[Rfam]
RNA sequence: UCAGUCAAUGUAAACACCCUACACUCUCAGCUGUGCGCCAUUGGUUAGCUGGGAGUGGGGUGUUUAUGUUGACUGC
Numbered sequence: 001u002c003a004g005u006c007a008a009u010g011u012a013a014a015c016a017c018c019c020u021a022c023a024c025u026c027u028c029a030g031c032u033g034u035g036c037g038c039c040a041u042u043g044g045u046u047a048g049c050u051g052g053g054a055g056u057g058g059g060g061u062g063u064u065u066a067u068g069u070u071g072a073c074u075g076c
Base pairs, nucleotide, nucleotide: 002075003074004073005072006071008069009068010067011066012065013064014063015062016061017060018059019058020057023056024055025054026053027052028051029050030049031048032047

Shown here is a 76-nucleotide sequence from Petromyzon marinus, a member of the family "mir-30 microRNA precursor family". This family consists of the mammalian microRNA (miRNA) precursor mir-30a. Animal miRNAs are transcribed as ~70nt precursors and subsequently processed by the Dicer enzyme to give a ~22nt product. In this case the mature sequence comes from both the 3' (miR-30) and 5' (mir-97-6) arms of the precursor. It is one of the family's seed sequences. NCBI's taxonomy places the organism under Eukaryota, Eumetazoa, Vertebrata, Hyperoartia, Petromyzon. Pairs were carried over by alignment from the consensus structure, which was predicted with PFOLD.